[Rfam]
RNA sequence: CAAGUAAAACGCCUUAUCGCUGUUCAUACAAAUGAAUGGAGGAAAGUCCGAACACCAAAGUGCAACAUAGUGGUUAAUGGCCACCAACCGUGAGGUUAGGAAAAGUGCAACAGAAAGUAUGUACAGGUAAUGCUGUAGUGAAACCCGGUAAACUCUAUGUGGUGCAAUGUCAUGUAUACCAACGUUUGAGGGCUGCACGCUCGAUUGUUGGAGGGUAGGCAGCUAAAGUGUAUGGGCAACCAUGCAUUCAGAUAAAUGAUAAGGGCUCUUUUAAGAGUACAGAAUUCGGCUUAUAGAUUUACUUAAUCA
Numbered sequence: 001c002a003a004g005u006a007a008a009a010c011g012c013c014u015u016a017u018c019g020c021u022g023u024u025c026a027u028a029c030a031a032a033u034g035a036a037u038g039g040a041g042g043a044a045a046g047u048c049c050g051a052a053c054a055c056c057a058a059a060g061u062g063c064a065a066c067a068u069a070g071u072g073g074u075u076a077a078u079g080g081c082c083a084c085c086a087a088c089c090g091u092g093a094g095g096u097u098a099g100g101a102a103a104a105g106u107g108c109a110a111c112a113g114a115a116a117g118u119a120u121g122u123a124c125a126g127g128u129a130a131u132g133c134u135g136u137a138g139u140g141a142a143a144c145c146c147g148g149u150a151a152a153c154u155c156u157a158u159g160u161g162g163u164g165c166a167a168u169g170u171c172a173u174g175u176a177u178a179c180c181a182a183c184g185u186u187u188g189a190g191g192g193c194u195g196c197a198c199g200c201u202c203g204a205u206u207g208u209u210g211g212a213g214g215g216u217a218g219g220c221a222g223c224u225a226a227a228g229u230g231u232a233u234g235g236g237c238a239a240c241c242a243u244g245c246a247u248u249c250a251g252a253u254a255a256a257u258g259a260u261a262a263g264g265g266c267u268c269u270u271u272u273a274a275g276a277g278u279a280c281a282g283a284a285u286u287c288g289g290c291u292u293a294u295a296g297a298u299u300u301a302c303u304u305a306a307u308c309a
Stems, first nucleotide, its partner, number of pairs: 002304007010296001011294001012264007020039008044292003048289005053164004060198004065160005070084005085099001086097004100155002105153002107149002168221004179211005190202004228247008

A member of the RNA family "Bacterial RNase P class A" from Pseudalgibacter alginicilyticus, 309 nucleotides long. NCBI's taxonomy places the organism under Bacteria, Pseudomonadati, Flavobacteriia, Flavobacteriaceae, Pseudalgibacter. Pairs were carried over by alignment from the consensus structure, which is taken from published work. Rfam describes the family as follows. Ribonuclease P (RNase P) is a ubiquitous endoribonuclease, found in archaea, bacteria and eukarya as well as chloroplasts and mitochondria. Its family is annotated with dimeric ribonuclease P complex, tRNA processing and ribonuclease P activity in the Gene Ontology.